[Rfam]
Nucleotides: 047
Base pairs, nucleotide, nucleotide: 007044008043010041011040012039013038015036016035017034019032020031021030022029023028
Number, partner (000 for none) and nucleotide at each position: 001000a002000a003000a004000c005000a006000g007044g008043u009000u010041a011040g012039a013038a014000c015036c016035a017034u018000u019032u020031a021030a022029a023028u024000c025000a026000u027000g028023a029022u030021u031020u032019a033000u034017a035016u036015g037000u038013u039012u040011c041010u042000c043008a044007c045000a046000a047000a